Record summary:
Shown here is a 175-nucleotide RNA from Hordeum vulgare, a member of the family "MIR2118 microRNA precursor family".
[Rfam]
RNA sequence: AGCGGGAAGGGGAAGAAAGAGAGAGUUCAAGAGCAAUAGGAAUGGGAACAUGGAGGAAAGACCUCCUUGUUUGUUUGCACCUCUACUUUUGGAGGUGCAAAUAUUCGGCAUGAAUCCUUUCCUCAUGCCUCCCAUUCCUACUGUUGUUGUGCACUCCUUCCUCUUCCUUUUGGCU
Numbered sequence: 001a002g003c004g005g006g007a008a009g010g011g012g013a014a015g016a017a018a019g020a021g022a023g024a025g026u027u028c029a030a031g032a033g034c035a036a037u038a039g040g041a042a043u044g045g046g047a048a049c050a051u052g053g054a055g056g057a058a059a060g061a062c063c064u065c066c067u068u069g070u071u072u073g074u075u076u077g078c079a080c081c082u083c084u085a086c087u088u089u090u091g092g093a094g095g096u097g098c099a100a101a102u103a104u105u106c107g108g109c110a111u112g113a114a115u116c117c118u119u120u121c122c123u124c125a126u127g128c129c130u131c132c133c134a135u136u137c138c139u140a141c142u143g144u145u146g147u148u149g150u151g152c153a154c155u156c157c158u159u160c161c162u163c164u165u166c167c168u169u170u171u172g173g174c175u
Stems, first nucleotide, its partner, number of pairs: 009166005015160003021156003026151001028149003032145004037140011049127003053123001055122006
Annotation
For this family Rfam cites "Characterization and expression profiles of miRNAs in rice seeds" (Xue et al., Nucleic Acids Res, 2009). Gene Ontology terms of the family: RISC complex and miRNA-mediated post-transcriptional gene silencing.